[Rfam]
RNA sequence: GCAUAUACUAUGCUCCGAGCCGGUUAAUCUAAGGCGUAUAACGUUAUGAUUUUCUGGCCAUUAGGGUUCGACAGGAAACUUGCGGGCCUUCCAGGGUGAAAAGGGGAUGCUCAUAUGGAUAC
Dot-bracket structure: ..((.(......((((..(((((..((((...((((.....))))..))))..))))).....(((((((..((....))..)))))))((......))...))))......).))......
Numbered sequence: 001g002c003a004u005a006u007a008c009u010a011u012g013c014u015c016c017g018a019g020c021c022g023g024u025u026a027a028u029c030u031a032a033g034g035c036g037u038a039u040a041a042c043g044u045u046a047u048g049a050u051u052u053u054c055u056g057g058c059c060a061u062u063a064g065g066g067u068u069c070g071a072c073a074g075g076a077a078a079c080u081u082g083c084g085g086g087c088c089u090u091c092c093a094g095g096g097u098g099a100a101a102a103g104g105g106g107a108u109g110c111u112c113a114u115a116u117g118g119a120u121a122c
Stems, first nucleotide, its partner, number of pairs: 003116002006113001013106004019058005026051004033045004064089007073080002090099002
A member of the RNA family "Molybdenum/Tungsten riboswitch aptamer (Moco RNA motif)" from Syntrophomonas zehnderi, 122 nucleotides long.
On this family, see Weinberg et al., Nucleic Acids Res 2007: "Identification of 22 candidate structured RNAs in bacteria using the CMfinder comparative genomics pipeline".
Lineage of the source: Bacteria > Bacillati > Clostridia > Syntrophomonadaceae > Syntrophomonas zehnderi.